[Rfam]
RNA sequence: GGGUCGGCUUAGCCGACUGGGUACUUCGAAUCCGUUUGUUCUCCAAUUUCAUAUGAAGUAGCAAUAACGCAGUCCCAGUGGCGCUGUCCAACCCUUUU
Numbered sequence: 001g002g003g004u005c006g007g008c009u010u011a012g013c014c015g016a017c018u019g020g021g022u023a024c025u026u027c028g029a030a031u032c033c034g035u036u037u038g039u040u041c042u043c044c045a046a047u048u049u050c051a052u053a054u055g056a057a058g059u060a061g062c063a064a065u066a067a068c069g070c071a072g073u074c075c076c077a078g079u080g081g082c083g084c085u086g087u088c089c090a091a092c093c094c095u096u097u098u
Stems, first nucleotide, its partner, number of pairs: 002093003006089002012082004017078004025072002027069002
Background:
This 98-nucleotide RNA from Darwinula stevensoni belongs to the Rfam family "Vault RNA". It is annotated as a non-coding RNA gene. The source organism's lineage runs through Eukaryota, Mandibulata, Darwinulocopina, Darwinuloidea and Darwinula. This family of RNAs are found as part of the enigmatic vault ribonucleoprotein complex. The complex consists of a major vault protein (MVP), two minor vault proteins (VPARP and TEP1), and several small untranslated RNA molecules. It has been suggested that the vault complex is involved in drug resistance.